[Rfam]
RNA: FMN riboswitch aptamer (RFN element)
RNA sequence: CUACAUCUUCGGGGCAGGGUGCAAUUCCCGACCGACGGUAAGGAACAUGAUGAAUGUUUCAAGUCCGUGACCCGCUUUGCGGUGGAUCCGGUGAGAGUCCGGAACCGACAGUUACAGUCUGGAUGGGAGAAGAUGACG
Dot-bracket structure: ...(((((((......(((.......))).[[((((((........................[[))))...((.......))....(((((.......)))))]])).(((.....]]))).......)))))))...